[Rfam]
RNA sequence: AGCUGUCUUCGUUAGGCGAGGCUUCUAUGCAAACAAAGGCCAUUGCCCGGAAACGUCGAAAGACGCCAAUGGGUAGAACAGGUAUUGCCGGAUUAAGGCUUUACUUAACAUGGCUGGAUGAAUAUCCUACGUUGCUUAGUGCCAAAGCUCAACCAGGGGGGAUCAGC
Number, nucleotide and partner (000 for none) at each position: 001a000002g000003c000004u000005g163006u162007c161008u160009u159010c158011g153012u152013u096014a000015g149016g148017c147018g000019a000020g143021g142022c141023u000024u000025c139026u138027a137028u000029g135030c134031a133032a132033a000034c000035a000036a000037a000038g000039g114040c113041c112042a111043u110044u000045g074046c073047c072048c071049g070050g000051a000052a000053a000054c065055g064056u063057c062058g000059a000060a000061a000062g057063a056064c055065g054066c000067c000068a000069a000070u049071g048072g047073g046074u045075a000076g000077a000078a000079c000080a000081g105082g104083u103084a102085u000086u000087g099088c098089c097090g000091g000092a000093u000094u000095a000096a013097g089098g088099c087100u000101u000102u084103a083104c082105u081106u000107a000108a000109c000110a043111u042112g041113g040114c039115u000116g127117g126118a125119u000120g000121a000122a000123u000124a000125u118126c117127c116128u000129a000130c000131g000132u032133u031134g030135c029136u000137u027138a026139g025140u000141g022142c021143c020144a000145a000146a000147g017148c016149u015150c000151a000152a012153c011154c000155a000156g000157g000158g010159g009160g008161g007162a006163u005164c000165a000166g000167c000